[Rfam]
This 94-nucleotide RNA from Synaphobranchus kaupii belongs to the Rfam family "Vault RNA".
This family of RNAs are found as part of the enigmatic vault ribonucleoprotein complex. The complex consists of a major vault protein (MVP), two minor vault proteins (VPARP and TEP1), and several small untranslated RNA molecules. It has been suggested that the vault complex is involved in drug resistance.
It is annotated as a non-coding RNA gene.
RNA sequence: GCGUUGGCUUAGCUCAAAGGUUACUUCCAUCUGCUACUAGUUUCGUGGUCCUUGGUCCGCGGGGUUCGAACCUUGGGCGCUGUCCAACGUUUUA
Numbered sequence: 001g002c003g004u005u006g007g008c009u010u011a012g013c014u015c016a017a018a019g020g021u022u023a024c025u026u027c028c029a030u031c032u033g034c035u036a037c038u039a040g041u042u043u044c045g046u047g048g049u050c051c052u053u054g055g056u057c058c059g060c061g062g063g064g065u066u067c068g069a070a071c072c073u074u075g076g077g078c079g080c081u082g083u084c085c086a087a088c089g090u091u092u093u094a
Stems, first nucleotide, its partner, number of pairs: 002089006012078004017074004025070003029066001
Dot-bracket structure: .((((((....((((.((((....(((.(....................................).))))))))))).....)))))).....